[Rfam]
RNA sequence: AAAGAAGGUUUCUAGGGUUCCGAUGCUUAAGGCGUGACUGGUCCGAGAGAAACAAGCUACUAUAAAGGAUUUUUUAUUUAGUUGACUACAAAUUAGGUAGCUACACGGAGGGAGAAAAGCCCGGGAGGA
Dot-bracket structure: .......(((((..((...((((((((...)))))..).)).))....))))).(((((((..................................))))))).(.[...(((.......))).)..]..
RNA: Guanidine-I riboswitch aptamer
Organism: Cyanobacterium aponinum